[Rfam]
RNA sequence: AUAGGCACCCUAUUCUCUUAAUAGUGCACUACUGUGGACCAUGGUCAAAAGAAGUGCACUAUAAAGGGAAUAGGGUACCAUUU
Numbered sequence: 001a002u003a004g005g006c007a008c009c010c011u012a013u014u015c016u017c018u019u020a021a022u023a024g025u026g027c028a029c030u031a032c033u034g035u036g037g038a039c040c041a042u043g044g045u046c047a048a049a050a051g052a053a054g055u056g057c058a059c060u061a062u063a064a065a066g067g068g069a070a071u072a073g074g075g076u077a078c079c080a081u082u083u
Stems, first nucleotide, its partner, number of pairs: 001083001003081001005078001007076004012071008022061009